mir-9261 microRNA precursor family: a 90-nucleotide sequence from Pipistrellus kuhlii. Rfam links the family to the GO terms miRNA-mediated post-transcriptional gene silencing and RISC complex. Taxonomically the source falls in Pipistrellus (Eukaryota, Deuterostomia, Chordata, Tetrapoda). A search with the family's covariance model found it, with a score of 88 bits.

RNA sequence: AACAAUUUGUCCCACGUCCCUCGGCAUUUUAAAAAAGUCCCGAUUUGGGACUUUUUCUAAAACGCCGAGGGACGCGGGACAAAUUGUUAA
Dot-bracket structure: (((((((((((((.(((((((((((.(((((.(((..................))).))))).))))))))))).)))))))))))))..